[Rfam]
RNA sequence: UCGAGUGCGGCUGAUGACGACAUUGCUGCUGAGACUUUGUGAUUGCUAAGUCUCAAAGUAAACGCUCUGACGCCCUCUGG
Numbered sequence: 001u002c003g004a005g006u007g008c009g010g011c012u013g014a015u016g017a018c019g020a021c022a023u024u025g026c027u028g029c030u031g032a033g034a035c036u037u038u039g040u041g042a043u044u045g046c047u048a049a050g051u052c053u054c055a056a057a058g059u060a061a062a063c064g065c066u067c068u069g070a071c072g073c074c075c076u077c078u079g080g
Stems, first nucleotide, its partner, number of pairs: 005075001007073003010021001012019002029050002032047002